Rfam assigns this 164-nucleotide sequence from Calothrix sp. NIES-3974 to the family "c-di-AMP riboswitch aptamer (ydaO/yuaA leader)".
Its family is annotated with regulation of gene expression and cyclic-di-AMP binding in the Gene Ontology.
RNA sequence: CGAACAAGUCAGCCUAGUCUAGCGAUAUACACAGUAUCCCUAGAGCGGGGGAACCAGUAAAGGGGCGUAUUUCCAGUUUUUUUUACCAACUACACGGUAAUUGGAAAGGGACAUCUCUCAGUCCUAGCCCGUCAGCUAACCUCGUCGGCAUUGAGGGAGAUCGA
Numbered sequence: 001c002g003a004a005c006a007a008g009u010c011a012g013c014c015u016a017g018u019c020u021a022g023c024g025a026u027a028u029a030c031a032c033a034g035u036a037u038c039c040c041u042a043g044a045g046c047g048g049g050g051g052a053a054c055c056a057g058u059a060a061a062g063g064g065g066c067g068u069a070u071u072u073c074c075a076g077u078u079u080u081u082u083u084u085a086c087c088a089a090c091u092a093c094a095c096g097g098u099a100a101u102u103g104g105a106a107a108g109g110g111a112c113a114u115c116u117c118u119c120a121g122u123c124c125u126a127g128c129c130c131g132u133c134a135g136c137u138a139a140c141c142u143c144g145u146c147g148g149c150a151u152u153g154a155g156g157g158a159g160a161u162c163g164a
Base pairs, nucleotide, nucleotide: 012149013148014147018044019043020042021041022040045145046144047143048142049141050140055062063130064129065128071106072105073104074103075102076101077100078099109124110123111122112121